Purine riboswitch aptamer: a 102-nucleotide sequence from Alkalihalophilus pseudofirmus. The organism belongs to Alkalihalophilus pseudofirmus, within Bacteria. The family's consensus secondary structure is taken from published work.

RNA sequence: ACAAACAAUAUAAAACAAACUCGUAUAAUCGUGAGGAUAUGGCUCACAAGUUUCUACCAAGCUGCCGUAAAUGGCUUGACUAUGAGUGAUGAUGACAAUCGG
Numbered sequence: 001a002c003a004a005a006c007a008a009u010a011u012a013a014a015a016c017a018a019a020c021u022c023g024u025a026u027a028a029u030c031g032u033g034a035g036g037a038u039a040u041g042g043c044u045c046a047c048a049a050g051u052u053u054c055u056a057c058c059a060a061g062c063u064g065c066c067g068u069a070a071a072u073g074g075c076u077u078g079a080c081u082a083u084g085a086g087u088g089a090u091g092a093u094g095a096c097a098a099u100c101g102g
Base pairs, nucleotide, nucleotide: 019087020086021085022084023083024082025081029049031047032046033045034044035043058078059077060076061075062074063073064072